[Rfam]
RNA sequence: CUAUAGACCUGUUGACUAUUGAACUGUUUUGUCACUCUCUGUCAAAGAAGAAAUUGUUCUCUGUCAGAGAGGGACAGAACAGUUCAAUAGUUAAUCCGUUCAGUAAC
Numbered sequence: 001c002u003a004u005a006g007a008c009c010u011g012u013u014g015a016c017u018a019u020u021g022a023a024c025u026g027u028u029u030u031g032u033c034a035c036u037c038u039c040u041g042u043c044a045a046a047g048a049a050g051a052a053a054u055u056g057u058u059c060u061c062u063g064u065c066a067g068a069g070a071g072g073g074a075c076a077g078a079a080c081a082g083u084u085c086a087a088u089a090g091u092u093a094a095u096c097c098g099u100u101c102a103g104u105a106a107c
Stems, first nucleotide, its partner, number of pairs: 002105003006101001011096001012094016028068004033063002048058002051055001